[Rfam]
The family of this 127-nucleotide sequence from Castor canadensis is "Small nucleolar RNA SNORA68". Rfam describes the family as follows. U68 is a member of the H/ACA class of small nucleolar RNAs (snoRNAs) which act as guides in the the modification of uridines to pseudouridines. NCBI's taxonomy places the organism under Eukaryota, Eumetazoa, Eutheria, Euarchontoglires, Castor. Gene Ontology terms of the family: RNA processing and nucleolus. The family has 26 seed sequences and 1,079 matches in Rfam 15.1.
RNA sequence: AGUUUUUUUUUGCCAAAAAUCACUACUCUGAUAGCAGUGGUUAAACAGAGGUACGCACAGCAAGUAGGUCUGCUGCUGUUAGGGGCUAUGGCUGUGCCCCUCAAAGUGAUGUGGAGAUUCUACACCC
Numbered sequence: 001a002g003u004u005u006u007u008u009u010u011u012g013c014c015a016a017a018a019a020u021c022a023c024u025a026c027u028c029u030g031a032u033a034g035c036a037g038u039g040g041u042u043a044a045a046c047a048g049a050g051g052u053a054c055g056c057a058c059a060g061c062a063a064g065u066a067g068g069u070c071u072g073c074u075g076c077u078g079u080u081a082g083g084g085g086c087u088a089u090g091g092c093u094g095u096g097c098c099c100c101u102c103a104a105a106g107u108g109a110u111g112u113g114g115a116g117a118u119u120c121u122a123c124a125c126c127c
Base pairs, nucleotide, nucleotide: 002054003053005051006050007049018042019041020040021039022038023037024036026034027033067119068118069117070116071115076106077105079103081101082100083099084098085097086096
Dot-bracket structure: .((.(((..........(((((((.((.....)).)))))))......))).))............(((((....((.(.((((((.........)))))).).))........)))))........